A member of the RNA family "Archaeal large subunit ribosomal RNA" from Salinirubellus salinus, 529 nucleotides of a longer RNA.
The base pairs follow the family's consensus structure, which is taken from published work.
Taxonomically the source falls in Salinirubellus (Archaea, Methanobacteriati, Methanobacteriota, Halobacteria).

[Rfam]
RNA sequence: CUACUAUGCCACCUGGUGGAUAGCUCGGCUCGAGCGCCGAUGAAGGACGUGCCAAGCUGCGAUAAGCUCAGGGGAGCUGCACGGAAGCGAAGAACCUGAGAUUUCCUAAUGGGAAUCCCCUCGCAAUUGCUUCGCGCAAUGGGGAACGCUCCGGAUUGAAACAUCUUAGUAGGAGCUGGAAGAGAAAACGAACGUGAUGUCGUUAGUAACGGCGAGUGAACGCGACGUAGUCCAAACCGAAGCCUUCGGGCAAUGUGGUGUUAGGACUGACCAUAAUCGGCCGUGAGGACACGAGAAGUCUUCAUGGAACGGAGCGCGAUACAGGGUGACAGCCCCGUAUCGUGUCCGAUCGGCCGUGGGUCUGUUCCCGAGUAGCGGGGGCUGGAAACCCCUCGUGAAUUUGGCAGGCAUCGACUGUCAAGACUAAAUACGUCUCGAGACCGAUAGCGAACAAGUAGUGUGAACGAACGCUGAAAAGCACCCCGAGAAGGGAGGUGCAAUAGGGCUUGAAAUCAGGUGGUGAUGGAGC
Numbered sequence: 001c002u003a004c005u006a007u008g009c010c011a012c013c014u015g016g017u018g019g020a021u022a023g024c025u026c027g028g029c030u031c032g033a034g035c036g037c038c039g040a041u042g043a044a045g046g047a048c049g050u051g052c053c054a055a056g057c058u059g060c061g062a063u064a065a066g067c068u069c070a071g072g073g074g075a076g077c078u079g080c081a082c083g084g085a086a087g088c089g090a091a092g093a094a095c096c097u098g099a100g101a102u103u104u105c106c107u108a109a110u111g112g113g114a115a116u117c118c119c120c121u122c123g124c125a126a127u128u129g130c131u132u133c134g135c136g137c138a139a140u141g142g143g144g145a146a147c148g149c150u151c152c153g154g155a156u157u158g159a160a161a162c163a164u165c166u167u168a169g170u171a172g173g174a175g176c177u178g179g180a181a182g183a184g185a186a187a188a189c190g191a192a193c194g195u196g197a198u199g200u201c202g203u204u205a206g207u208a209a210c211g212g213c214g215a216g217u218g219a220a221c222g223c224g225a226c227g228u229a230g231u232c233c234a235a236a237c238c239g240a241a242g243c244c245u246u247c248g249g250g251c252a253a254u255g256u257g258g259u260g261u262u263a264g265g266a267c268u269g270a271c272c273a274u275a276a277u278c279g280g281c282c283g284u285g286a287g288g289a290c291a292c293g294a295g296a297a298g299u300c301u302u303c304a305u306g307g308a309a310c311g312g313a314g315c316g317c318g319a320u321a322c323a324g325g326g327u328g329a330c331a332g333c334c335c336c337g338u339a340u341c342g343u344g345u346c347c348g349a350u351c352g353g354c355c356g357u358g359g360g361u362c363u364g365u366u367c368c369c370g371a372g373u374a375g376c377g378g379g380g381g382c383u384g385g386a387a388a389c390c391c392c393u394c395g396u397g398a399a400u401u402u403g404g405c406a407g408g409c410a411u412c413g414a415c416u417g418u419c420a421a422g423a424c425u426a427a428a429u430a431c432g433u434c435u436c437g438a439g440a441c442c443g444a445u446a447g448c449g450a451a452c453a454a455g456u457a458g459u460g461u462g463a464a465c466g467a468a469c470g471c472u473g474a475a476a477a478g479c480a481c482c483c484c485g486a487g488a489a490g491g492g493a494g495g496u497g498c499a500a501u502a503g504g505g506c507u508u509g510a511a512a513u514c515a516g517g518u519g520g521u522g523a524u525g526g527a528g529c
Base pairs, nucleotide, nucleotide: 007522008521009520010519011518012517013516014515015514016513022507023471024470027442028441029439030438031437032436033435034434035432036431044107045106046105047104048061049060050059067100068099069098070097071096072095076088077087078086111120112119113118126140127139128138129137130136147178148176149175150174151173152172158165159164188195189194199226200225201224202223203222209217210216229425230424231423232422237258238257239256269362270361271360278356279355280354281353292342293341294340298315300314301313302312303311318322324336325335326334375396376395377394378393379392380391381390403419404418405417406416407415458465459464